[Rfam]
RNA sequence: GUGUCAGAAAUGAUGAAUAUCUUCAUGUCUCUUCUCUGACUGUUUGAUGAAGAGUUUGUUUAGAUAUCUGAUCUUCCUGGACUC
Numbered sequence: 001g002u003g004u005c006a007g008a009a010a011u012g013a014u015g016a017a018u019a020u021c022u023u024c025a026u027g028u029c030u031c032u033u034c035u036c037u038g039a040c041u042g043u044u045u046g047a048u049g050a051a052g053a054g055u056u057u058g059u060u061u062a063g064a065u066a067u068c069u070g071a072u073c074u075u076c077c078u079g080g081a082c083u084c
Stems, first nucleotide, its partner, number of pairs: 001084001003082003
RNA: Small nucleolar RNA SNORD111